[Rfam]
Nucleotides: 354
Stems, first nucleotide, its partner, number of pairs: 041058007062194005072187002075182003086172002090169003096112005113154007195209004200219002204216002320335004326351006
Number, partner (000 for none) and nucleotide at each position: 001000g002000a003000u004000c005000u006000u007000g008000c009000g010000c011000c012000g013000c014000a015000g016000c017000c018000g019000c020000c021000c022000c023000g024000c025000g026000c027000c028000u029000a030000u031000a032000u033000c034000u035000g036000g037000c038000c039000u040000u041058g042057u043056c044055c045054g046053g047052g048000g049000c050000a051000a052047c053046c054045c055044g056043g057042a058041c059000u060000a061000u062194g063193g064192c065191g066190a067000u068000a069000a070000a071000c072187g073186c074000a075182c076181c077180u078000g079000u080000a081000a082000u083000a084000a085000a086172c087171g088000g089000c090169u091168c092167g093000g094000a095000c096112c097111c098110g099109g100108g101000g102000g103000c104000g105000g106000u107000a108100c109099c110098c111097g112096g113154c114153g115152g116151c117150u118149c119148c120000a121000c122000c123000a124000a125000u126000c127000c128000a129000c130000g131000c132000g133000g134000c135000g136000u137000u138000g139000c140000g141000c142000g143000g144000g145000c146000a147000u148119g149118g150117g151116g152115c153114c154113g155000a156000a157000a158000c159000a160000g161000g162000a163000u164000c165000g166000a167092c168091g169090g170000a171087c172086g173000u174000c175000u176000a177000a178000a179000g180077a181076g182075g183000c184000c185000a186073g187072c188000u189000u190066u191065c192064g193063c194062u195209c196208g197207g198206u199000a200219g201218g202000u203000a204216c205215c206198a207197c208196c209195g210000u211000u212000a213000u214000c215205g216204g217000a218201c219200c220000a221000c222000a223000a224000g225000u226000a227000c228000a229000g230000u231000u232000g233000c234000c235000a236000a237000c238000g239000a240000c241000a242000a243000c244000c245000g246000u247000g248000c249000u250000c251000c252000g253000a254000u255000g256000g257000c258000u259000c260000u261000g262000g263000c264000u265000g266000c267000g268000u269000a270000a271000g272000c273000g274000g275000u276000c277000c278000g279000a280000a281000c282000a283000u284000c285000g286000a287000a288000a289000c290000c291000u292000a293000a294000g295000c296000c297000c298000u299000u300000c301000c302000g303000c304000u305000u306000a307000g308000c309000c310000g311000c312000g313000u314000a315000a316000g317000g318000c319000g320335g321334g322333g323332c324000c325000c326351g327350c328349c329348g330347g331346a332323g333322c334321c335320u336000g337000g338000c339000a340000a341000c342000a343000g344000a345000a346331u347330c348329c349328g350327g351326c352000a353000c354000c

The record is a 354-nucleotide RNA sequence from Tabrizicola oligotrophica, which matches "Alphaproteobacteria transfer-messenger RNA" in Rfam. Rfam classes the family as a non-coding RNA gene.